Overview:
This 113-nucleotide RNA sequence belongs to the Rfam family "U5 spliceosomal RNA". The family's RNA type in Rfam is spliceosomal small nuclear RNA. For this family Rfam cites "The uRNA database" (Zwieb, Nucleic Acids Res, 1997).
RNA sequence: UGACUCUGGUUUCUCUUCAAAAUGCACAAGUCUUUCGCCUUUUACUAAAGACUUCCGUGGAGAGGGACGUUCAAGAGUUUAAGUUAUUUUUGGUGGGCUUUGCCGUAAGGCUG
Numbered sequence: 001u002g003a004c005u006c007u008g009g010u011u012u013c014u015c016u017u018c019a020a021a022a023u024g025c026a027c028a029a030g031u032c033u034u035u036c037g038c039c040u041u042u043u044a045c046u047a048a049a050g051a052c053u054u055c056c057g058u059g060g061a062g063a064g065g066g067a068c069g070u071u072c073a074a075g076a077g078u079u080u081a082a083g084u085u086a087u088u089u090u091u092g093g094u095g096g097g098c099u100u101u102g103c104c105g106u107a108a109g110g111c112u113g
Stems, first nucleotide, its partner, number of pairs: 003078004009068011028054008094113001096112006